[Rfam]
RNA sequence: GUAACAGGAAUUGUUACUAGCACACAAGCCCUCAUAAAUGUUUCUCGUGGUGGCAGCGGUGGGAUAGAGGACACCAUUUAUGAGGGCUUGUGUGCUAGUAACAAUUCCUGUUACU
Number, nucleotide and partner (000 for none) at each position: 001g114002u113003a112004a111005c110006a109007g108008g107009a000010a105011u104012u103013g102014u101015u100016a099017c098018u097019a096020g000021c094022a093023c092024a091025c090026a089027a088028g087029c086030c085031c084032u083033c082034a081035u080036a079037a078038a077039u076040g075041u000042u000043u000044c000045u000046c000047g000048u000049g000050g000051u000052g000053g000054c000055a000056g000057c000058g000059g000060u000061g000062g000063g000064a000065u000066a000067g000068a000069g000070g000071a000072c000073a000074c000075c040076a039077u038078u037079u036080a035081u034082g033083a032084g031085g030086g029087c028088u027089u026090g025091u024092g023093u022094g021095c000096u019097a018098g017099u016100a015101a014102c013103a012104a011105u010106u000107c008108c007109u006110g005111u004112u003113a002114c001115u000
Rfam assigns this 115-nucleotide RNA from Homarus americanus to the family "MIR6145 microRNA precursor family". It scores 56 bits against the family's covariance model. Rfam links the family to the GO terms RISC complex and miRNA-mediated post-transcriptional gene silencing. Lineage of the source: Eukaryota > Altocrustacea > Pleocyemata > Astacidea > Homarus. The family has 2 seed sequences and 52 matches in Rfam 15.1.